[Rfam]
The record is an 84-nucleotide RNA sequence, which matches "c-di-GMP-II-GAG riboswitch aptamer" in Rfam. Rfam's curators put it in the seed alignment. Rfam links the family to the GO terms regulation of gene expression and cyclic-di-GMP binding. The family's consensus secondary structure is taken from published work.
RNA sequence: AAGCGGCGUGGACGCGAUGAUCACAGCCCUGUAAGCGGUUGCUUGGGGCUGCGGGAGCAAGUAGCGAGACCGGCCACGCAUCUC
Dot-bracket structure: .((..((((((..((......(.((((((.......[[[[[[[..)))))).)...))....]]]]]..]]..))))))..)).